[Rfam]
RNA: Mammalian CPEB3 ribozyme
Organism: Alligator sinensis
RNA sequence: GGUUGCAAAUUUGAAGUCAAGGCAGAAGCACUCACAGUGCAGCCUGUCAGAGUCCAAUGAAUCUGUGAAGUUUGUU
Numbered sequence: 001g002g003u004u005g006c007a008a009a010u011u012u013g014a015a016g017u018c019a020a021g022g023c024a025g026a027a028g029c030a031c032u033c034a035c036a037g038u039g040c041a042g043c044c045u046g047u048c049a050g051a052g053u054c055c056a057a058u059g060a061a062u063c064u065g066u067g068a069a070g071u072u073u074g075u076u
Stems, first nucleotide, its partner, number of pairs: 013044001016043002021076006028040003048065004053060002